The family of this 137-nucleotide RNA from Peromyscus maniculatus is "Small nucleolar RNA SNORA70".
snoRNA U70 seems to be exclusive to mammals and is a member of the H/ACA class of snoRNA which contain H (ANANNA) and ACA box motifs. H/ACA box snoRNAs are involved in the conversion of uridines to pseudouridines (5-ribosyluracil) a constituent of structural RNAs (transfer, ribosomal, small nuclear, and small nucleolar).
[Rfam]
RNA sequence: CUACAGCCAGUUAAGCUGUAGAUUAAGGUUUCUGAUGGAGGCCUGGUAUGCAGGGGCUGCGAACAGCAGCGUCCUUGAUAGUACUUGCUGCUGCCUGUCACCUGUACAGGCUGCCCUAAGGGACCUUGGAGACAGUU
Dot-bracket structure: .(.((................((((...(((......)))...)))).)).)........................(.(...........(.((((...........)))).).........).)............
Its family is annotated with nucleolus and RNA processing in the Gene Ontology. Rfam 15.1 lists 5,173 matches to the family in 383 species. Lineage of the source: Eukaryota > Mammalia > Boreoeutheria > Muroidea > Peromyscus maniculatus. It is annotated as an H/ACA-box small nucleolar RNA. For this family Rfam cites "Pseudouridine in RNA: what, where, how, and why" (Charette and Gray, IUBMB Life, 2000). It scores 78 bits against the family's covariance model.